[Rfam]
RNA sequence: GUUGGUCGGUUUUUCAAAUUUUUUUUUUUUUUUUUUUACGAAACCGACCAACUUUGGUCGGUUUUUUGGUCGGUUGUUUUACCGACCAAAGUUGGUCGGUUUCGUAAAAAAAAAAAAAAAAAAAAAAUUUGAAAAACCGACCAACUUUGGUCGGUUUUUUGGU
Numbered sequence: 001g002u003u004g005g006u007c008g009g010u011u012u013u014u015c016a017a018a019u020u021u022u023u024u025u026u027u028u029u030u031u032u033u034u035u036u037u038a039c040g041a042a043a044c045c046g047a048c049c050a051a052c053u054u055u056g057g058u059c060g061g062u063u064u065u066u067u068g069g070u071c072g073g074u075u076g077u078u079u080u081a082c083c084g085a086c087c088a089a090a091g092u093u094g095g096u097c098g099g100u101u102u103c104g105u106a107a108a109a110a111a112a113a114a115a116a117a118a119a120a121a122a123a124a125a126a127a128u129u130u131g132a133a134a135a136a137c138c139g140a141c142c143a144a145c146u147u148u149g150g151u152c153g154g155u156u157u158u159u160u161g162g163u
Stems, first nucleotide, its partner, number of pairs: 016130004021125014036109002046059004060103002134157010
The family of this 163-nucleotide RNA sequence from Nicotiana tabacum is "Phenylalanine leader peptide". Rfam 15.1 lists 379 matches to the family in 290 species. Rfam links the family to the GO term cellular amino acid metabolic process.